Archaeal RNase P: a 274-nucleotide RNA from Methanobrevibacter curvatus. Ribonuclease P (RNase P) is a ubiquitous endoribonuclease, found in archaea, bacteria and eukarya as well as chloroplasts and mitochondria. Its best characterised activity is the generation of mature 5'-ends of tRNAs by cleaving the 5'-leader elements of precursor-tRNAs. Cellular RNase Ps are ribonucleoproteins. The organism belongs to Methanobrevibacter, within Archaea. The family is grouped with related families in Rfam's "RNaseP clan".
RNA sequence: GUAAGCCGAAGACAGCUACUGGUUUUUUAAAACUAAGGAAACUCCGUCCACCAUAUAAAAAGCAUAGUAUCAAAGAUACCUGCUGAGAAGUAGGACUCUGGAGCAGAAACGACAUGUCUUUUAAUGAAUGACCAUGAUGCAAUAGCUGAAGACAUUAAAAGGAGCGGUGAAACGGCCAUUCUAUGUGGUGCAAGAAAAAGUUAACCUAUUUUAGGUAAAAGUAUUUCGCAAAGAUGAAUGCUGUAAAACAGAAGGCGGGUUACUCUCGGCAUAC
Dot-bracket structure: (((.((((((((((((...(((((......)))))....[[[.[[[[[((((..[[.....((((((((((...)))))(((((....)))))((...(((.............(((((((((((.............((....)).......))))))))..))).........))).)))))))))))...((((........((]]....))........))))............))))).........]]]]]]]].)).))))).)))